RNA: Group II catalytic intron D1-D4-3
Nucleotides: 178
Stems, first nucleotide, its partner, number of pairs: 001016006028178002032174001037169001041164006047155005063150005072142003077137005083111004089104004
Number, partner (000 for none) and nucleotide at each position: 001016u002015c003014c004013u005012c006011u007000g008000c009000g010000a011006g012005g013004a014003g015002g016001a017000a018000u019000c020000u021000g022000a023000a024000g025000g026000a027000a028178g029177u030000c031000c032174g033000u034000g035000g036000g037169c038000a039000a040000a041164c042163u043162u044161c045160u046159g047155g048154u049153c050152u051151g052000a053000c054000g055000a056000a057000c058000a059000g060000g061000a062000a063150u064149c065148a066147c067146a068000u069000c070000a071000g072142g073141c074140a075000g076000g077137a078136u079135a080134c081133a082000a083111g084110g085109a086108u087000a088000a089104g090103a091102c092101u093000g094000c095000a096000u097000a098000a099000c100000a101092a102091g103090u104089u105000a106000a107000a108086g109085u110084c111083c112000a113000a114000u115000a116000g117000c118000u119000a120000c121000a122000c123000a124000g125000a126000a127000a128000a129000a130000a131000a132000a133081u134080g135079u136078a137077u138000g139000u140074u141073g142072u143000a144000a145000a146067u147066g148065u149064g150063g151051c152050a153049g154048a155047u156000a157000g158000a159046u160045g161044g162043a163042a164041g165000g166000g167000a168000a169037g170000a171000u172000a173000a174032u175000a176000c177029a178028c